[Rfam]
RNA sequence: CUCUUAUUUGGAGAUGGUGGAGGGACAGUCCCGAUGAAGCCCAGCAACCUCACUUGAAGUGAAAGGUGCUAACCUGAUGCAAGGAUCAUUCCUUGAACAAUAAGAG
Dot-bracket structure: ((((((((....(..(((...(((.[[..)))......))))((((.((((((.....))))..)))))).......]]((((((....))))))...))))))))
Shown here is a 106-nucleotide sequence from Oceanobacillus oncorhynchi, a member of the family "SAM riboswitch aptamer (S box leader)". It scores 75 bits against the family's covariance model. NCBI's taxonomy places the organism under Bacteria, Bacillota, Caryophanales, Bacillaceae, Oceanobacillus.